[Rfam]
RNA sequence: AGGUGUCUUCAAGGUCGGGUGUAAUUCCCAACCGGCGGUAUAGCCCGCAACCCGCGUCAACGGUGGAUCUGGUUAAAUUCCAGGGCCGACAGUAUAGUCUGGUAUAUAGAAGAUUUCU
Numbered sequence: 001a002g003g004u005g006u007c008u009u010c011a012a013g014g015u016c017g018g019g020u021g022u023a024a025u026u027c028c029c030a031a032c033c034g035g036c037g038g039u040a041u042a043g044c045c046c047g048c049a050a051c052c053c054g055c056g057u058c059a060a061c062g063g064u065g066g067a068u069c070u071g072g073u074u075a076a077a078u079u080c081c082a083g084g085g086c087c088g089a090c091a092g093u094a095u096a097g098u099c100u101g102g103u104a105u106a107u108a109g110a111a112g113a114u115u116u117c118u
Stems, first nucleotide, its partner, number of pairs: 003116001005114006017029003031098002033088002035048004043086002052063002068084005090101003
RNA: FMN riboswitch aptamer (RFN element)
Organism: Limosilactobacillus frumenti